This 72-nucleotide RNA sequence from Camelus dromedarius belongs to the Rfam family "Small nucleolar RNA SNORD113/SNORD114 family". A search with the family's covariance model found it, with a score of 70 bits. The imprinted human domain at 14q32 contains two clusters of tandemly repeated small nucleolar RNAs named 14q(I) and 14q(II) snoRNAs. These two clusters are named SNORD113 and SNORD114 respectively in the HGNC approved gene symbol nomenclature. The snoRNAs found in both clusters are clearly related and are represented here by a single family. These snoRNAs are intron encoded and are processed from the tissue-specific non-coding human MEG8 RNA, which lies downstream of the imprinted genes DLK1 and GTL2. snoRNAs 14q(I) and 14q(II) differ from previously identified C/D box snoRNAs in their expression profiles and lack of complementarity to rRNA and snRNA. Homologues of these snoRNAs are found in the imprinted non-coding mouse transcript Rian, and in the rat non-coding Bsr (brain-specific repetitive) RNA. Rfam 15.1 lists 5,721 matches to the family in 142 species. The organism belongs to Camelus, within Eukaryota. By type it is a C/D-box small nucleolar RNA. The family's consensus secondary structure is taken from published work. The literature on the family includes a 2002 paper in Hum Mol Genet by Cavaille et al., "Identification of tandemly-repeated C/D snoRNA genes at the imprinted human 14q32 domain reminiscent of those at the Prader-Willi/Angelman syndrome region".
RNA sequence: UGGAUCGAUGAUGACCACUGUUCGAGUACGAGUUGUGUACGAUGAAUACGUGUCUGCAACUCUGAGGUCCGA
Numbered sequence: 001u002g003g004a005u006c007g008a009u010g011a012u013g014a015c016c017a018c019u020g021u022u023c024g025a026g027u028a029c030g031a032g033u034u035g036u037g038u039a040c041g042a043u044g045a046a047u048a049c050g051u052g053u054c055u056g057c058a059a060c061u062c063u064g065a066g067g068u069c070c071g072a
Base pairs, nucleotide, nucleotide: 002070003069004068005067006066